[Rfam]
RNA: t44 RNA
RNA sequence: AUUUUAUUAACGUUAUAACACACACAUAUUACCACACUUUACCGGGGUGCUUUAAUUAUUGAUUAAAGUCGGUUAGAGCGAAUAUGUGGAGGCAUAAC
Numbered sequence: 001a002u003u004u005u006a007u008u009a010a011c012g013u014u015a016u017a018a019c020a021c022a023c024a025c026a027u028a029u030u031a032c033c034a035c036a037c038u039u040u041a042c043c044g045g046g047g048u049g050c051u052u053u054a055a056u057u058a059u060u061g062a063u064u065a066a067a068g069u070c071g072g073u074u075a076g077a078g079c080g081a082a083u084a085u086g087u088g089g090a091g092g093c094a095u096a097a098c
Stems, first nucleotide, its partner, number of pairs: 023088008037078004041073004049069005